[Rfam]
RNA sequence: CAUACGGCUUCUUCGAUUAAAAUCGCUACGUCACGUAGCAACAUCGAACCAACCCACGUCGUGUGGG
Numbered sequence: 001c002a003u004a005c006g007g008c009u010u011c012u013u014c015g016a017u018u019a020a021a022a023u024c025g026c027u028a029c030g031u032c033a034c035g036u037a038g039c040a041a042c043a044u045c046g047a048a049c050c051a052a053c054c055c056a057c058g059u060c061g062u063g064u065g066g067g
Stems, first nucleotide, its partner, number of pairs: 012048006025039005053067005

Record summary: This 67-nucleotide RNA sequence from Pontibacillus yanchengensis belongs to the Rfam family "Bacillaceae-1 RNA". Rfam classes the family as a small RNA. Lineage of the source: Bacteria > Bacillota > Bacilli > Pontibacillus > Pontibacillus yanchengensis. The match comes from Rfam's covariance-model search (45 bits).